[Rfam]
RNA sequence: GGAGGUAGGCCCUCCGGAGUCUGCUGUCGGAAGCCGGCUUCAAACCAACCCAAGCUGCGCGUGUUAAGAGCACGGGUGGUGAGCGUUGGGUGAGAAGGUAGCGCUAAACGUUAUCAGGU
Numbered sequence: 001g002g003a004g005g006u007a008g009g010c011c012c013u014c015c016g017g018a019g020u021c022u023g024c025u026g027u028c029g030g031a032a033g034c035c036g037g038c039u040u041c042a043a044a045c046c047a048a049c050c051c052a053a054g055c056u057g058c059g060c061g062u063g064u065u066a067a068g069a070g071c072a073c074g075g076g077u078g079g080u081g082a083g084c085g086u087u088g089g090g091u092g093a094g095a096a097g098g099u100a101g102c103g104c105u106a107a108a109c110g111u112u113a114u115c116a117g118g119u
Stems, first nucleotide, its partner, number of pairs: 001015005016041006023034003046118001048091006054080002057077002060074005097115006
RNA: Group II catalytic intron D1-D4-2
Organism: Desulfohalobium retbaense